[Rfam]
RNA sequence: UAUGAAUCUAGCGGAAACACUUUCGCACAAACUAGAUUAUGGAUACAGUGUGCGGAAAUGCUUCUGCUGCAUUUUUA
Numbered sequence: 001u002a003u004g005a006a007u008c009u010a011g012c013g014g015a016a017a018c019a020c021u022u023u024c025g026c027a028c029a030a031a032c033u034a035g036a037u038u039a040u041g042g043a044u045a046c047a048g049u050g051u052g053c054g055g056a057a058a059u060g061c062u063u064c065u066g067c068u069g070c071a072u073u074u075u076u077a
Base pairs, nucleotide, nucleotide: 001077002076004074005073006072007071009069010068011067012066013065014064015063016062018060019059021057022056023055024054025053026052027051028050029049032048033047
mir-147 microRNA precursor family: a 77-nucleotide RNA sequence from Trichechus manatus. Gene Ontology terms of the family: RISC complex and miRNA-mediated post-transcriptional gene silencing. The match comes from Rfam's covariance-model search (88 bits). Pairs were carried over by alignment from the consensus structure, which was predicted with RNAalifold.